A member of the RNA family "MIR5225 microRNA precursor family" from Malus domestica, 132 nucleotides long.
Its family is annotated with RISC complex and miRNA-mediated post-transcriptional gene silencing in the Gene Ontology.
Taxonomically the source falls in Malus (Eukaryota, eudicotyledons, Rosales, Amygdaloideae).
The family has 6 seed sequences and 63 matches in Rfam 15.1.
[Rfam]
Nucleotides: 132
Base pairs, nucleotide, nucleotide: 005124006123007122009121010120011119012118014116015115016114017113019112020111021110023108025106026105027104028103029102
Number, partner (000 for none) and nucleotide at each position: 001000c002000g003000u004000a005124g006123g007122g008000a009121c010120u011119u012118c013000u014116g015115u016114c017113g018000a019112a020111g021110g022000u023108g024000a025106g026105a027104u028103g029102g030000u031000g032000c033000c034000g035000a036000a037000g038000g039000c040000c041000a042000u043000g044000u045000a046000u047000a048000u049000u050000g051000g052000u053000a054000g055000c056000u057000g058000c059000g060000a061000u062000u063000a064000c065000a066000a067000g068000c069000u070000u071000u072000a073000u074000a075000u076000a077000g078000c079000u080000a081000g082000u083000c084000a085000a086000u087000u088000c089000a090000g091000g092000c093000c094000a095000g096000c097000g098000a099000g100000c101000u102029u103028c104027a105026u106025c107000c108023c109000u110021c111020c112019u113017c114016g115015a116014c117000u118012g119011a120010a121009g122007c123006c124005u125000c126000u127000c128000a129000c130000g131000c132000u